[Rfam]
RNA sequence: GUUAAUACCCCAGUUAUCAAGGUAUGCUUGAGAUUCGACCUUUCGAAAGAAAGCGUUGAUAAUAAGUUUUUGGAUCCGCUCUGCUGGGGUUUCCGGCGGAGCAAA
Dot-bracket structure: ......(.(...(((((....))).))..)...).(((((((((....))))).)))).....................(.(.(((.((...))..))).).)..
The family of this 105-nucleotide RNA from Caenorhabditis japonica is "SL2 RNA". The family is grouped with related families in Rfam's "SL clan". Rfam's curators write: This family represents SL2 RNA. SL2 RNA is involved in trans splicing in lower eukaryotes. Trans-splicing is a form of RNA processing. The acquisition of a spliced leader from a SL RNA is a intra-molecular reaction which precisely joins exons derived from separately transcribed RNAs. Approximately 25% of C. elegans genes are organised into polycistronic transcription units and the presence of SL2 on an mRNA is an indication the the gene is in an operon. A reference for the family is Evans and Blumenthal (2000), "trans splicing of polycistronic Caenorhabditis elegans pre-mRNAs: analysis of the SL2 RNA", Mol Cell Biol. Pairs were carried over by alignment from the consensus structure, which is taken from published work.